[Rfam]
RNA sequence: GGUAAUGGAUACCACGCUAAGAACGCCACGUCCUGUGGCAACGCCUGGUACCUACAUCCUGUAGG
Numbered sequence: 001g002g003u004a005a006u007g008g009a010u011a012c013c014a015c016g017c018u019a020a021g022a023a024c025g026c027c028a029c030g031u032c033c034u035g036u037g038g039c040a041a042c043g044c045c046u047g048g049u050a051c052c053u054a055c056a057u058c059c060u061g062u063a064g065g
Base pairs, nucleotide, nucleotide: 011049012048013047014046016044017043025039026038027037028036029035051065052064053063054062055061
Dot-bracket structure: ..........((((.((.......(((((.....)))))...)).)))).(((((.....)))))
Bacillaceae-1 RNA: a 65-nucleotide RNA from Shouchella oshimensis. Pairs were carried over by alignment from the consensus structure, which is taken from published work.